[Rfam]
RNA sequence: CGAGCGUACAUGAGGGAGCUGACUGCAAAUCUGCCGUCAUCGACUUCGAAGGUUCGACUCGAGCGUAGUGAGAGAACGUUGCCGAAGGCAACGGCCCGAAGGGUGAGUCGCGAAGCGACGAAUAAUCCUUCCUUGCUACGA
Numbered sequence: 001c002g003a004g005c006g007u008a009c010a011u012g013a014g015g016g017a018g019c020u021g022a023c024u025g026c027a028a029a030u031c032u033g034c035c036g037u038c039a040u041c042g043a044c045u046u047c048g049a050a051g052g053u054u055c056g057a058c059u060c061g062a063g064c065g066u067a068g069u070g071a072g073a074g075a076a077c078g079u080u081g082c083c084g085a086a087g088g089c090a091a092c093g094g095c096c097c098g099a100a101g102g103g104u105g106a107g108u109c110g111c112g113a114a115g116c117g118a119c120g121a122a123u124a125a126u127c128c129u130u131c132c133u134u135g136c137u138a139c140g141a
Base pairs, nucleotide, nucleotide: 013133014132015131016130017129018128020125041105042104044103045102053100054099055098056097060070061069077093078092079091080090081089082088

The record is a 141-nucleotide sequence from Cronobacter sakazakii, which matches "RtT RNA" in Rfam. NCBI's taxonomy places the organism under Bacteria, Pseudomonadota, Enterobacterales, Cronobacter, Cronobacter sakazakii. The base pairs follow the family's consensus structure, which is taken from published work. Rfam's curators write: This family represents a bacterial cis-regulatory element known as RtT RNA. The exact function of RtT is unknown although it is thought that it may be involved in changing the cellular response in relation to amino acid starvation. For this family Rfam cites "A novel RNA product of the tyrT operon of Escherichia coli" (Bosl and Kersten, Nucleic Acids Res, 1991).